Record summary
Bacterial RNase P class A: a 429-nucleotide RNA sequence from Candidatus Filomicrobium marinum.

RNA sequence: CCAGUCGGCUGGACGGCCGCUGUUCCGGCAUGGGCUUUGUGGCCCGUCAAAAUGUCGGAAUGGAGGAAAGUCCGGGCUCCAUGGAAACACGGUGGCGGCUAACGGCCGCCGGGGGUGACCCCAGGGAAAGUGCCACAGAAAGCAAACCGCCGCUGCUCGCUUUGCGAGGUACGGUAAGGGUGAAAGGGUGCGGUAAGAGCGCACCGCGCGGCUGGUAACAGUCGCGGCAUGGUAAACCCCACCGGGAGCAAGGCCAAAUAGGGGCGACCGGAGAUGUGUGGCGCGCAAGCGACGUGCGAUCUCAGGCCCGUUUUCAGGUUCGUCGCCCGGGUUGGCUGCUUGAGGCGUCUGGUGACAGACGUCCCAGAUGAAUGGUCGUCGCGGAGGGUGACCUCCAGACAGAACCCGGCUUACAGGCCGACUGGCAGA
Numbered sequence: 001c002c003a004g005u006c007g008g009c010u011g012g013a014c015g016g017c018c019g020c021u022g023u024u025c026c027g028g029c030a031u032g033g034g035c036u037u038u039g040u041g042g043c044c045c046g047u048c049a050a051a052a053u054g055u056c057g058g059a060a061u062g063g064a065g066g067a068a069a070g071u072c073c074g075g076g077c078u079c080c081a082u083g084g085a086a087a088c089a090c091g092g093u094g095g096c097g098g099c100u101a102a103c104g105g106c107c108g109c110c111g112g113g114g115g116u117g118a119c120c121c122c123a124g125g126g127a128a129a130g131u132g133c134c135a136c137a138g139a140a141a142g143c144a145a146a147c148c149g150c151c152g153c154u155g156c157u158c159g160c161u162u163u164g165c166g167a168g169g170u171a172c173g174g175u176a177a178g179g180g181u182g183a184a185a186g187g188g189u190g191c192g193g194u195a196a197g198a199g200c201g202c203a204c205c206g207c208g209c210g211g212c213u214g215g216u217a218a219c220a221g222u223c224g225c226g227g228c229a230u231g232g233u234a235a236a237c238c239c240c241a242c243c244g245g246g247a248g249c250a251a252g253g254c255c256a257a258a259u260a261g262g263g264g265c266g267a268c269c270g271g272a273g274a275u276g277u278g279u280g281g282c283g284c285g286c287a288a289g290c291g292a293c294g295u296g297c298g299a300u301c302u303c304a305g306g307c308c309c310g311u312u313u314u315c316a317g318g319u320u321c322g323u324c325g326c327c328c329g330g331g332u333u334g335g336c337u338g339c340u341u342g343a344g345g346c347g348u349c350u351g352g353u354g355a356c357a358g359a360c361g362u363c364c365c366a367g368a369u370g371a372a373u374g375g376u377c378g379u380c381g382c383g384g385a386g387g388g389u390g391a392c393c394u395c396c397a398g399a400c401a402g403a404a405c406c407c408g409g410c411u412u413a414c415a416g417g418c419c420g421a422c423u424g425g426c427a428g429a
Base pairs, nucleotide, nucleotide: 001425002424003423004422005421006420007419008418009417010416011414012380013379014378015377016376017375018374020063021062022061023060024059025058026057027056028055029054030053031052068412069411070410072409073408074407075406076405077248078247079246080245085314086313087312090244091243092242093241094240095109096108097107098106099105110124111122112121113120114119125239126238130237131236132233133232134231147179148178149175150174151173152172156168157167158166159165187205188204189203190202191201192200206228207226208225209224210223211222212221213220214219252337253336254335255334262328263327264326265325266324267323305321306320308318309317344363345362346361347360348359349358350357351356
Rfam describes the family as follows. Ribonuclease P (RNase P) is a ubiquitous endoribonuclease, found in archaea, bacteria and eukarya as well as chloroplasts and mitochondria. It scores 316 bits against the family's covariance model. Clan: RNaseP clan. By type it is a ribozyme. Gene Ontology terms of the family: ribonuclease P activity, tRNA processing and dimeric ribonuclease P complex.